[Rfam]
RNA sequence: CGGCCUGAAUAGCAAACCCGGCGCGAGCCGGCGACGCAAAGCCUCCGGUGUUGGCGGGCUCCCCUUUUAUACGAGGAGCCCUCCCAAGAUAGCGGGGUUGCCGGU
Numbered sequence: 001c002g003g004c005c006u007g008a009a010u011a012g013c014a015a016a017c018c019c020g021g022c023g024c025g026a027g028c029c030g031g032c033g034a035c036g037c038a039a040a041g042c043c044u045c046c047g048g049u050g051u052u053g054g055c056g057g058g059c060u061c062c063c064c065u066u067u068u069a070u071a072c073g074a075g076g077a078g079c080c081c082u083c084c085c086a087a088g089a090u091a092g093c094g095g096g097g098u099u100g101c102c103g104g105u
Base pairs, nucleotide, nucleotide: 012037013036018031019030020029021028022027040099041098042097043096045095046094047093048090049089
The record is a 105-nucleotide RNA sequence from Paucibacter sp. KCTC 42545, which matches "c-di-GMP-I riboswitch aptamer" in Rfam. The family's consensus secondary structure is taken from published work. The match comes from Rfam's covariance-model search (47 bits). Rfam describes the family as follows. GEMM was predicted in a large-scale screen for bacterial structured RNA regulatory elements.